[Rfam]
RNA sequence: ACGGCGGCACGAGUUUUUAUCGUUUCCUCGUCUUGGACCCGGCCGGAGCCGAACGAUGUCAGGCCGGAUCACGCCGU
Numbered sequence: 001a002c003g004g005c006g007g008c009a010c011g012a013g014u015u016u017u018u019a020u021c022g023u024u025u026c027c028u029c030g031u032c033u034u035g036g037a038c039c040c041g042g043c044c045g046g047a048g049c050c051g052a053a054c055g056a057u058g059u060c061a062g063g064c065c066g067g068a069u070c071a072c073g074c075c076g077u
Base pairs, nucleotide, nucleotide: 001077002076003075004074005073006072009031010030011029012028037069039067040066041065042064043063044062
This 77-nucleotide RNA sequence belongs to the Rfam family "CyVA-1 RNA". Cyanobacteria, Acidobacteria (1 example), Verrucomicrobia (1 example). The sequence is in the family's curated seed alignment. Rfam classes the family as a small RNA.